A member of the RNA family "Plastid-clpP 5UTR RNA" from Cephalotus follicularis, 69 nucleotides long.
Plastid clpP is a non-coding RNA (ncRNA) recognised in plastids. It was found in the prime untranslated region (5UTR) of a protease complex subunit (clpP) in plastids, suggesting a posible cis-regulatory function.
The family has 343 seed sequences and 2,105 matches in Rfam 15.1.
The family's consensus secondary structure was predicted with LocARNA.
RNA sequence: AAUUCUGUUAGUAGGAACAAAAAGAAGCAGAUCUAUACUAAAUCCGGUAAGUACUAAUAUUAAAAAAAU
Numbered sequence: 001a002a003u004u005c006u007g008u009u010a011g012u013a014g015g016a017a018c019a020a021a022a023a024g025a026a027g028c029a030g031a032u033c034u035a036u037a038c039u040a041a042a043u044c045c046g047g048u049a050a051g052u053a054c055u056a057a058u059a060u061u062a063a064a065a066a067a068a069u
Stems, first nucleotide, its partner, number of pairs: 003022002006019004043068001051060003